Annotation:
A member of the RNA family "c-di-AMP riboswitch aptamer (ydaO/yuaA leader)" from Bacillus sp. cl95, 139 nucleotides long.
[Rfam]
RNA sequence: AUUUCUAAAUCGCUGAAACCAUUCGGUACGGGGGAACCAUUUGGAUGAAAUUAAUCCGUGGGGUGAAUCCUUAAAUAGGUAGGGCUACUCAAGGGCCCAAAUCCGACAGCUAACCUCGUAAGCGUCAUAUUGAGAAGGA
Numbered sequence: 001a002u003u004u005c006u007a008a009a010u011c012g013c014u015g016a017a018a019c020c021a022u023u024c025g026g027u028a029c030g031g032g033g034g035a036a037c038c039a040u041u042u043g044g045a046u047g048a049a050a051u052u053a054a055u056c057c058g059u060g061g062g063g064u065g066a067a068u069c070c071u072u073a074a075a076u077a078g079g080u081a082g083g084g085c086u087a088c089u090c091a092a093g094g095g096c097c098c099a100a101a102u103c104c105g106a107c108a109g110c111u112a113a114c115c116u117c118g119u120a121a122g123c124g125u126c127a128u129a130u131u132g133a134g135a136a137g138g139a
Base pairs, nucleotide, nucleotide: 011124012123013122014121018027019026020025028119029118030117031116032115033114038060039059061104062103063102069079070078071077082098083097084096085095
NCBI's taxonomy places the organism under Bacteria, Bacillati, Bacillota, Caryophanales, Bacillus. About the family: This family represents a conserved RNA structure found upstream of the ydaO and yuaA genes in Bacillus subtilis and related genes in other bacteria. The ydaO/yuaA element is thought to act as a genetic 'off' switch for the ydaO and yuaA genes in its native state.